[Rfam]
RNA: c-di-GMP-I riboswitch aptamer
Organism: Alkaliphilus metalliredigens
RNA sequence: CGUUGAUAAGGGCAAACUUACUGAAAAGUAAGGACGCAAAGCCAUGAGUCUAAGGGAAGUUUUUAUUCCUAUGAUUGUCAGGUUGCAAAU
Numbered sequence: 001c002g003u004u005g006a007u008a009a010g011g012g013c014a015a016a017c018u019u020a021c022u023g024a025a026a027a028g029u030a031a032g033g034a035c036g037c038a039a040a041g042c043c044a045u046g047a048g049u050c051u052a053a054g055g056g057a058a059g060u061u062u063u064u065a066u067u068c069c070u071a072u073g074a075u076u077g078u079c080a081g082g083u084u085g086c087a088a089a090u
Stems, first nucleotide, its partner, number of pairs: 012037002017032006040084004045080003048075003055069004